About this RNA:
Shown here is a 587-nucleotide part of an RNA from Helicobacter bilis, a member of the family "Bacterial large subunit ribosomal RNA". Rfam's curators put it in the seed alignment. Taxonomically the source falls in Helicobacter bilis (Bacteria, Pseudomonadati, Campylobacterota, Helicobacteraceae). For this family Rfam cites "The comparative RNA web (CRW) site: an online database of comparative sequence and structure information for ribosomal, intron, and other RNAs" (Cannone et al., BMC Bioinformatics, 2002). The base pairs follow the family's consensus structure, which is taken from published work.
[Rfam]
RNA sequence: CCCGCGGCAAGACGGAAAGACCCCGUGGACCUUUACUACAGCUUGGCACUGCCGAUGGGAGCAUUAUGCGCAGGAUAGGUGGGAGGCUUUGAAGUCUUCACUCUGGUGGAGAUGGAGCCAUCCUUGAGAUACCACCCUUAAUGUUUCUGUCUGCUAACUGGCUAGAGUUAUCCUCUAGCAGGACAAUGCCUGGUGGGUAGUUUGACUGGGGCGGUCGCCUCCUAAAAAGUAACGGAGGCUUGCAAAGGUUGGCUCAUUGCGGUUGGAAAUCGCAAGUAGAGUGUAAUGGCAUAAGCCAGCCUGACUGUAAGACAAACAAGUCGAGCAGAGACGAAAGUCGGUCAUAGUGAUCCGGUGAUUCUGUGUGGAAGGGUCAUCGCUCAAAGGAUAAAAGGUACCCCGGGGAUAACAGGCUGAUCUCCCCCAAGAGCUCACAUCGACGGGGAGGUUUGGCACCUCGAUGUCGGCUCAUCGCAUCCUGGGGCUGGAGCAGGUCCCAAGGGUAUGGCUGUUCGCCAUUUAAAGCGGUACGCGAGCUGGGUUCAGAACGUCGUGAGACAGUUCGGUCCCUAUCUGCCGUGGGCGUA
Numbered sequence: 001c002c003c004g005c006g007g008c009a010a011g012a013c014g015g016a017a018a019g020a021c022c023c024c025g026u027g028g029a030c031c032u033u034u035a036c037u038a039c040a041g042c043u044u045g046g047c048a049c050u051g052c053c054g055a056u057g058g059g060a061g062c063a064u065u066a067u068g069c070g071c072a073g074g075a076u077a078g079g080u081g082g083g084a085g086g087c088u089u090u091g092a093a094g095u096c097u098u099c100a101c102u103c104u105g106g107u108g109g110a111g112a113u114g115g116a117g118c119c120a121u122c123c124u125u126g127a128g129a130u131a132c133c134a135c136c137c138u139u140a141a142u143g144u145u146u147c148u149g150u151c152u153g154c155u156a157a158c159u160g161g162c163u164a165g166a167g168u169u170a171u172c173c174u175c176u177a178g179c180a181g182g183a184c185a186a187u188g189c190c191u192g193g194u195g196g197g198u199a200g201u202u203u204g205a206c207u208g209g210g211g212c213g214g215u216c217g218c219c220u221c222c223u224a225a226a227a228a229g230u231a232a233c234g235g236a237g238g239c240u241u242g243c244a245a246a247g248g249u250u251g252g253c254u255c256a257u258u259g260c261g262g263u264u265g266g267a268a269a270u271c272g273c274a275a276g277u278a279g280a281g282u283g284u285a286a287u288g289g290c291a292u293a294a295g296c297c298a299g300c301c302u303g304a305c306u307g308u309a310a311g312a313c314a315a316a317c318a319a320g321u322c323g324a325g326c327a328g329a330g331a332c333g334a335a336a337g338u339c340g341g342u343c344a345u346a347g348u349g350a351u352c353c354g355g356u357g358a359u360u361c362u363g364u365g366u367g368g369a370a371g372g373g374u375c376a377u378c379g380c381u382c383a384a385a386g387g388a389u390a391a392a393a394g395g396u397a398c399c400c401c402g403g404g405g406a407u408a409a410c411a412g413g414c415u416g417a418u419c420u421c422c423c424c425c426a427a428g429a430g431c432u433c434a435c436a437u438c439g440a441c442g443g444g445g446a447g448g449u450u451u452g453g454c455a456c457c458u459c460g461a462u463g464u465c466g467g468c469u470c471a472u473c474g475c476a477u478c479c480u481g482g483g484g485c486u487g488g489a490g491c492a493g494g495u496c497c498c499a500a501g502g503g504u505a506u507g508g509c510u511g512u513u514c515g516c517c518a519u520u521u522a523a524a525g526c527g528g529u530a531c532g533c534g535a536g537c538u539g540g541g542u543u544c545a546g547a548a549c550g551u552c553g554u555g556a557g558a559c560a561g562u563u564c565g566g567u568c569c570c571u572a573u574c575u576g577c578c579g580u581g582g583g584c585g586u587a
Stems, first nucleotide, its partner, number of pairs: 001583008010575003014570002022404004027400002029396005035201004042193002045190004051154002054151013068137001078136005085119003094113008158181003162178006204216004217239006240385001242342002248300006254280002257275006281290002305328004311322003330339003353379007361372002413454003417451001418448007428438002465540001466538004470532001471529005478503002481498006505519005546564004550559003